mir-9/mir-79 microRNA precursor family: a 78-nucleotide RNA sequence from Oryzias latipes. The family's consensus secondary structure was predicted with RNAalifold. Rfam 15.1 lists 5,647 matches to the family in 934 species. It is one of the family's seed sequences. Rfam links the family to the GO terms miRNA-mediated post-transcriptional gene silencing and RISC complex.

[Rfam]
RNA sequence: CUGUUCCUGUCUUUGGUUAUCUAGCUGUAUGAGUGUGAUUUACCCAUCAUAAAGCUAGAUAACCGAAAGUAGGAAUGA
Numbered sequence: 001c002u003g004u005u006c007c008u009g010u011c012u013u014u015g016g017u018u019a020u021c022u023a024g025c026u027g028u029a030u031g032a033g034u035g036u037g038a039u040u041u042a043c044c045c046a047u048c049a050u051a052a053a054g055c056u057a058g059a060u061a062a063c064c065g066a067a068a069g070u071a072g073g074a075a076u077g078a
Base pairs, nucleotide, nucleotide: 002077003076004075005074007072008071009070010069012067013066014065015064016063017062018061019060020059021058022057023056024055025054026053028051029050030049031048032047
Record summary
The organism belongs to Oryzias, within Eukaryota.